Annotation
A member of the RNA family "Soft rot Enterobacteriaceae Rev 39 5'UTR" from [Pantoea] beijingensis, 309 nucleotides long. From bacteria cultured under starvation conditions. Rfam links the family to the GO term cellular response to starvation. On this family, see Kwenda et al., BMC Genomics 2016: "Discovery and profiling of small RNAs responsive to stress conditions in the plant pathogen Pectobacterium atrosepticum".
RNA sequence: AAAAGUUGUCAAUAGAACACUAACUGUGAUAACUCUGUAGGCAUUACUUCGAACAAGCAAAAUAAAGAAUAGAAAAUGAAAGCCCUUCUACGAGUGAUUAGCCUAGUCGUGAUUAGCGUGGUGGUGAUUAUUAUCACACCGUGCGGGGCAUCGCUUGGAGAAAGAAAGGCUUAAAAAUCAAGUCUGAAUUCAAAAAACCCCCGCACCGAAAGGUUCGGGGGUUUUUUUUCGACCCAGGCUAACGUGAAGUGAAUGAGAGAGGAAUCGAGAAUGAACAGUAGCAUAAAAUGCUGUUGUUCCUGGCCAGAG
Numbered sequence: 001a002a003a004a005g006u007u008g009u010c011a012a013u014a015g016a017a018c019a020c021u022a023a024c025u026g027u028g029a030u031a032a033c034u035c036u037g038u039a040g041g042c043a044u045u046a047c048u049u050c051g052a053a054c055a056a057g058c059a060a061a062a063u064a065a066a067g068a069a070u071a072g073a074a075a076a077u078g079a080a081a082g083c084c085c086u087u088c089u090a091c092g093a094g095u096g097a098u099u100a101g102c103c104u105a106g107u108c109g110u111g112a113u114u115a116g117c118g119u120g121g122u123g124g125u126g127a128u129u130a131u132u133a134u135c136a137c138a139c140c141g142u143g144c145g146g147g148g149c150a151u152c153g154c155u156u157g158g159a160g161a162a163a164g165a166a167a168g169g170c171u172u173a174a175a176a177a178u179c180a181a182g183u184c185u186g187a188a189u190u191c192a193a194a195a196a197a198c199c200c201c202c203g204c205a206c207c208g209a210a211a212g213g214u215u216c217g218g219g220g221g222u223u224u225u226u227u228u229u230c231g232a233c234c235c236a237g238g239c240u241a242a243c244g245u246g247a248a249g250u251g252a253a254u255g256a257g258a259g260a261g262g263a264a265u266c267g268a269g270a271a272u273g274a275a276c277a278g279u280a281g282c283a284u285a286a287a288a289u290g291c292u293g294u295u296g297u298u299c300c301u302g303g304c305c306a307g308a309g
Stems, first nucleotide, its partner, number of pairs: 005033007016021001038073001041070001044066002048062001050057001084262003089257001093250001098242007106234001108118003120140004126135003142159001144157004162190002168185002171182002192227012205214003263295003267291001269289001271284003
The organism belongs to Erwinia, within Bacteria.